[Rfam]
Nucleotides: 178
Base pairs, nucleotide, nucleotide: 003071004070005069008066009065010064015060016059017058018057019055021053022052023051024050026044027043028042029041032038033037083105084104085103087101088100091097114172115171116170117169118168119167120166121165123163124162129157130156131155133153134152135151136150141146
Number, partner (000 for none) and nucleotide at each position: 001000a002000g003071g004070g005069c006000u007000u008066g009065g010064g011000g012000a013000a014000g015060g016059g017058c018057u019055g020000c021053u022052g023051g024050g025000u026044g027043c028042u029041g030000g031000a032038c033037c034000a035000c036000a037033g038032g039000c040000c041029c042028a043027g044026c045000c046000a047000c048000g049000u050024u051023c052022c053021a054000a055019c056000c057018a058017g059016c060015c061000u062000u063000a064010c065009c066008c067000g068000u069005g070004c071003c072000c073000a074000a075000g076000a077000g078000c079000a080000g081000c082000u083105c084104c085103c086000g087101g088100g089000c090000a091097g092000g093000c094000u095000c096000c097091c098000c099000a100088c101087u102000g103085g104084g105083g106000c107000g108000c109000g110000u111000c112000c113000c114172g115171u116170g117169c118168a119167g120166u121165a122000a123163c124162a125000g126000g127000u128000g129157u130156g131155a132000g133153c134152a135151u136150c137000c138000a139000u140000u141146a142000a143000g144000c145000a146141u147000u148000u149000u150136g151135a152134u153133g154000g155131u156130c157129a158000u159000g160000u161000a162124u163123g164000a165121u166120a167119c168118u169117g170116c171115a172114u173000a174000c175000a176000a177000c178000a
The record is a 178-nucleotide RNA from Piaya cayana, which matches "Small Cajal body specific RNA 16" in Rfam.
From the family's description: scaRNAs are a specific class of small nuclear RNAs which localise to the Cajal bodies and guide the modification of RNA polymerase II transcribed spliceosomal RNAs U1, U2, U4, U5 and U12.
Gene Ontology terms of the family: nucleolus and RNA processing.
Lineage of the source: Eukaryota > Tetrapoda > Dinosauria > Otidimorphae > Piaya.
The base pairs follow the family's consensus structure, which was predicted with RNAfold.